[Rfam]
RNA: Group II catalytic intron D1-D4-7
Organism: Vibrionales bacterium SWAT-3
RNA sequence: CCAUCUGUAUCACCAGAUGACCCUAGGUUCCUGAAUAAAGCAGCGGAACCGACAAUGUAACGAAACUCAGUCGUUAGCUGAGUGGGAACGGAAUCGUGAGAAGAUGUUCCUCCUGAGAACCACAGCUCGGGUGAGUGC
Numbered sequence: 001c002c003a004u005c006u007g008u009a010u011c012a013c014c015a016g017a018u019g020a021c022c023c024u025a026g027g028u029u030c031c032u033g034a035a036u037a038a039a040g041c042a043g044c045g046g047a048a049c050c051g052a053c054a055a056u057g058u059a060a061c062g063a064a065a066c067u068c069a070g071u072c073g074u075u076a077g078c079u080g081a082g083u084g085g086g087a088a089c090g091g092a093a094u095c096g097u098g099a100g101a102a103g104a105u106g107u108u109c110c111u112c113c114u115g116a117g118a119a120c121c122a123c124a125g126c127u128c129g130g131g132u133g134a135g136u137g138c
Base pairs, nucleotide, nucleotide: 002019003018004017005016006015007014027049028048029047030046031045065083066082067081068080069079070078084110085109086108088107094101095100112131113130114129115128116127117126